[Rfam]
RNA sequence: CAAGGUAUGCGCGACUGGCGAAAACGCAGAUUACUGCGGGGGAGCGCAUAUAGCAUAAGAGCCGUUCGCCUGGGCAAAGUAU
Numbered sequence: 001c002a003a004g005g006u007a008u009g010c011g012c013g014a015c016u017g018g019c020g021a022a023a024a025c026g027c028a029g030a031u032u033a034c035u036g037c038g039g040g041g042g043a044g045c046g047c048a049u050a051u052a053g054c055a056u057a058a059g060a061g062c063c064g065u066u067c068g069c070c071u072g073g074g075c076a077a078a079g080u081a082u
Base pairs, nucleotide, nucleotide: 005051006050007049008048009047010046011045012044015041016040017070018069019068020067021066026037027036028035029034061075062074063073
The family of this 82-nucleotide sequence from Paenibacillus thalictri is "ZMP/ZTP riboswitch aptamer (pfl RNA motif)". The match comes from Rfam's covariance-model search (61 bits). Rfam links the family to the GO terms one-carbon metabolic process and regulation of purine nucleotide biosynthetic process.